[Rfam]
RNA sequence: ACCUAGGGUAGAGGUGCGGUAAUUAAAAGUAUUUGAAAGUAGUCGGCAGAUGAUGAUAUUCAAAGAAAGGAAUUAUUGCCGAAAAGGUAAUCUUUGCAAAGAUUAUUUUUGGGGUUAUACAUAAUAUGUAUAGCACUGUCACUUAUUUUUAAGUGGUGAGCUACAAGGUUU
Numbered sequence: 001a002c003c004u005a006g007g008g009u010a011g012a013g014g015u016g017c018g019g020u021a022a023u024u025a026a027a028a029g030u031a032u033u034u035g036a037a038a039g040u041a042g043u044c045g046g047c048a049g050a051u052g053a054u055g056a057u058a059u060u061c062a063a064a065g066a067a068a069g070g071a072a073u074u075a076u077u078g079c080c081g082a083a084a085a086g087g088u089a090a091u092c093u094u095u096g097c098a099a100a101g102a103u104u105a106u107u108u109u110u111g112g113g114g115u116u117a118u119a120c121a122u123a124a125u126a127u128g129u130a131u132a133g134c135a136c137u138g139u140c141a142c143u144u145a146u147u148u149u150u151a152a153g154u155g156g157u158g159a160g161c162u163a164c165a166a167g168g169u170u171u
Stems, first nucleotide, its partner, number of pairs: 008164004016079009032064006039057001083110012111137002114134008139156007
Shown here is a 171-nucleotide sequence from Terrisporobacter othiniensis, a member of the family "Lysine riboswitch aptamer".
NCBI's taxonomy places the organism under Bacteria, Bacillota, Clostridia, Peptostreptococcaceae, Terrisporobacter.
The match comes from Rfam's covariance-model search (115 bits).
The literature on the family includes a 2003 paper in Cell by Mandal et al., "Riboswitches Control Fundamental Biochemical Pathways in Bacillus subtilis and Other Bacteria".